[Rfam]
Nucleotides: 113
Stems, first nucleotide, its partner, number of pairs: 007100004011063004016057001017039009046056002049053001069094003075088004
Number, partner (000 for none) and nucleotide at each position: 001000a002000a003000a004000c005000a006000a007100u008099g009098u010097c011063a012062g013061g014060g015000g016057u017039g018038c019037u020036c021035g022034g023033a024032c025031u026000c027000g028000a029000u030000c031025g032024g033023u034022c035021c036020g037019a038018g039017c040000u041000g042000a043000g044000a045000u046056c047055c048000c049053g050000c051000a052000g053049u054000c055047g056046g057016g058000a059000a060014c061013c062012c063011u064000u065000a066000g067000u068000a069094c070093c071092u072000g073000a074000u075088c076087u077086g078085g079000a080000u081000a082000a083000u084000g085078c086077c087076a088075g089000c090000g091000a092071a093070g094069g095000g096000a097010g098009g099008c100007a101000c102000g103000a104000a105000a106000a107000c108000g109000a110000u111000c112000u113000u